The family of this 108-nucleotide sequence from Magallana gigas is "Vault RNA". For this family Rfam cites "Evolution of Vault RNAs" (Stadler et al., Mol Biol Evol, 2009). Lineage of the source: Eukaryota > Protostomia > Bivalvia > Ostreida > Magallana. Rfam classes the family as a non-coding RNA gene.
[Rfam]
Nucleotides: 108
Stems, first nucleotide, its partner, number of pairs: 002103006012092004017088004025073002028070002
Number, partner (000 for none) and nucleotide at each position: 001000u002103u003102g004101c005100u006099g007098g008000c009000u010000u011000a012092g013091u014090c015089g016000a017088g018087g019086g020085g021000a022000u023000a024000c025073u026072u027000c028070g029069a030000u031000a032000c033000u034000u035000a036000a037000a038000a039000a040000u041000a042000a043000u044000a045000a046000a047000a048000u049000g050000g051000a052000g053000a054000a055000a056000a057000a058000c059000u060000a061000g062000a063000g064000g065000g066000g067000g068000u069029u070028c071000a072026a073025a074000u075000c076000c077000c078000a079000c080000a081000g082000a083000c084000u085020c086019c087018c088017c089015u090014g091013a092012c093000g094000c095000g096000a097000u098007c099006c100005a101004g102003c103002a104000u105000u106000u107000u108000u